This 78-nucleotide RNA from Nocardia speluncae belongs to the Rfam family "6C RNA".
The literature on the family includes a 2007 paper in Nucleic Acids Res by Weinberg et al., "Identification of 22 candidate structured RNAs in bacteria using the CMfinder comparative genomics pipeline".
RNA sequence: AACGCGUCGGCCCCUCCCCCCCGGGCCGACCUUAUGCGGGCCUCGGCAAACUCCCCCCCUUCGCCGAGGCCCGCUCUC
Numbered sequence: 001a002a003c004g005c006g007u008c009g010g011c012c013c014c015u016c017c018c019c020c021c022c023g024g025g026c027c028g029a030c031c032u033u034a035u036g037c038g039g040g041c042c043u044c045g046g047c048a049a050a051c052u053c054c055c056c057c058c059c060u061u062c063g064c065c066g067a068g069g070c071c072c073g074c075u076c077u078c
Base pairs, nucleotide, nucleotide: 002035004032006030007029008028009027010026011025012024013023036074037073038072039071040070041069042068043067044066045065046064047063